[Rfam]
RNA: MIR473 microRNA precursor family
Nucleotides: 079
Stems, first nucleotide, its partner, number of pairs: 006075010018064009
Number, partner (000 for none) and nucleotide at each position: 001000a002000u003000u004000g005000a006075u007074c008073a009072c010071u011070c012069u013068c014067c015066u016000u017000c018064a019063a020062a021061g022060g023059c024058u025057u026056c027000u028000a029000a030000c031000a032000u033000u034000g035000c036000c037000g038000g039000c040000c041000a042000a043000c044000u045000a046000u047000g048000g049000c050000a051000a052000g053000u054000u055000c056026g057025a058024a059023g060022u061021c062020u063019u064018u065000a066015a067014g068013g069012g070011g071010a072009g073008u074007g075006a076000a077000c078000a079000a